[Rfam]
RNA: gabT RNA
RNA sequence: GGCCGCCUGGGCCCCUGCAGCAGUCGAUCAACGCAUGCUGCUGCAGUCGAAUACCGGCCGCC
Numbered sequence: 001g002g003c004c005g006c007c008u009g010g011g012c013c014c015c016u017g018c019a020g021c022a023g024u025c026g027a028u029c030a031a032c033g034c035a036u037g038c039u040g041c042u043g044c045a046g047u048c049g050a051a052u053a054c055c056g057g058c059c060g061c062c
Stems, first nucleotide, its partner, number of pairs: 001062003005058002015046010025033002